[Rfam]
Rfam assigns this 75-nucleotide sequence from Streptomyces albiflaviniger to the family "ASpks TB sRNA". On this family, see Arnvig and Young, Mol Microbiol 2009: "Identification of small RNAs in Mycobacterium tuberculosis". The source organism's lineage runs through Bacteria, Actinomycetota, Kitasatosporales, Streptomycetaceae and Streptomyces.
RNA sequence: CUUGAUGGACCCCAGCCACAACGGCCGGUCCCCAUCCCGCUCCUGCCCAUACGUGGCCAGCAGCGCCUGCGCCUC
Dot-bracket structure: ..............(((.....))).....(.(....((...(((.(((....))).)))...))...).)....